[Rfam]
RNA sequence: AUGCCUUUUGAUAAAGCUAUAUACAUUUCAUCAUAACUACCAUAGAAAAAUUAUCAUAAAGGAGUUAUGAUAUAAU
Numbered sequence: 001a002u003g004c005c006u007u008u009u010g011a012u013a014a015a016g017c018u019a020u021a022u023a024c025a026u027u028u029c030a031u032c033a034u035a036a037c038u039a040c041c042a043u044a045g046a047a048a049a050a051u052u053a054u055c056a057u058a059a060a061g062g063a064g065u066u067a068u069g070a071u072a073u074a075a076u
Base pairs, nucleotide, nucleotide: 030071031070032069033068034067035066036065037064
The family of this 76-nucleotide RNA is "dfrA-dnaX RNA". Pairs were carried over by alignment from the consensus structure, which is taken from published work. It is annotated as a small RNA.